RNA sequence: GCAAACCAAAACAAUGAAAGCCCUUCCUCUCUUUCAUCCUUGCGGCUCCAAUGACCGCGCCAGUGUGAAUUGGAUAAACAAAAAGCGA
Numbered sequence: 001g002c003a004a005a006c007c008a009a010a011a012c013a014a015u016g017a018a019a020g021c022c023c024u025u026c027c028u029c030u031c032u033u034u035c036a037u038c039c040u041u042g043c044g045g046c047u048c049c050a051a052u053g054a055c056c057g058c059g060c061c062a063g064u065g066u067g068a069a070u071u072g073g074a075u076a077a078a079c080a081a082a083a084a085g086c087g088a
Stems, first nucleotide, its partner, number of pairs: 034068003039063002041059005047053001
RNA: BsrC